RNA sequence: UAGUUUUUUUAGGUUUUGAUUUUUUUGACGUUCAGAUGAGAAAAUCACUGCCUAAAGAAAGUG
Numbered sequence: 001u002a003g004u005u006u007u008u009u010u011a012g013g014u015u016u017u018g019a020u021u022u023u024u025u026u027g028a029c030g031u032u033c034a035g036a037u038g039a040g041a042a043a044a045u046c047a048c049u050g051c052c053u054a055a056a057g058a059a060a061g062u063g
Stems, first nucleotide, its partner, number of pairs: 004060011017047008
Shown here is a 63-nucleotide sequence from Anguilla anguilla, a member of the family "mir-737 microRNA precursor family". Lineage of the source: Eukaryota > Metazoa > Eumetazoa > Bilateria > Anguilla. A search with the family's covariance model found it, with a score of 62 bits.